RNA sequence: UCUAGAACUCGAGAUAUAGGCUGAAAACUGAACAGUGUCUGGGCUACAAGAUAGAUUCGGACUUCUUCGUUGUUGCUAUAAUUUGGACUUGAAAACAACCUUUUUAAAUCCUGGCCUCCACAUGAAAGUUGUAGACCUAUGUCUUACCAAAUCUAUG
Numbered sequence: 001u002c003u004a005g006a007a008c009u010c011g012a013g014a015u016a017u018a019g020g021c022u023g024a025a026a027a028c029u030g031a032a033c034a035g036u037g038u039c040u041g042g043g044c045u046a047c048a049a050g051a052u053a054g055a056u057u058c059g060g061a062c063u064u065c066u067u068c069g070u071u072g073u074u075g076c077u078a079u080a081a082u083u084u085g086g087a088c089u090u091g092a093a094a095a096c097a098a099c100c101u102u103u104u105u106a107a108a109u110c111c112u113g114g115c116c117u118c119c120a121c122a123u124g125a126a127a128g129u130u131g132u133a134g135a136c137c138u139a140u141g142u143c144u145u146a147c148c149a150a151a152u153c154u155a156u157g
Base pairs, nucleotide, nucleotide: 003155004154005153006152009146011145012144013143014142015141016140017139018138019137020136021134022133023132025130027129028128029127035123036122037121041119042118043117048112050110051109052108054105055104059100060099063097072088073087074086
RNA: MIR2912 microRNA precursor family